RNA sequence: GAAUGACCGGCUCAUCACGCCGGGUGUCAGGCUGAUAAAAAUACACCGUCCUGCUCAACGAUAAUGUCCUGCAUGCCUGGCGGAUGCUCAUCGUAAACUGCGCGGUCAGAUAACUGACGAGCUCACGCUUUAUCGCUGGUUUU
Numbered sequence: 001g002a003a004u005g006a007c008c009g010g011c012u013c014a015u016c017a018c019g020c021c022g023g024g025u026g027u028c029a030g031g032c033u034g035a036u037a038a039a040a041a042u043a044c045a046c047c048g049u050c051c052u053g054c055u056c057a058a059c060g061a062u063a064a065u066g067u068c069c070u071g072c073a074u075g076c077c078u079g080g081c082g083g084a085u086g087c088u089c090a091u092c093g094u095a096a097a098c099u100g101c102g103c104g105g106u107c108a109g110a111u112a113a114c115u116g117a118c119g120a121g122c123u124c125a126c127g128c129u130u131u132a133u134c135g136c137u138g139g140u141u142u143u
Stems, first nucleotide, its partner, number of pairs: 025112004030107002048077001050075001052073003058067003080103003116141003120137003
Dot-bracket structure: ........................((((.((................(.(.(((...(((....)))...))).).)..(((..................)))..)).))))...(((.(((............))).)))..
isrN Hfq binding RNA: a 143-nucleotide sequence from Brenneria rubrifaciens. The family's RNA type in Rfam is small RNA. Lineage of the source: Bacteria > Pseudomonadota > Gammaproteobacteria > Pectobacteriaceae > Brenneria. It scores 140 bits against the family's covariance model.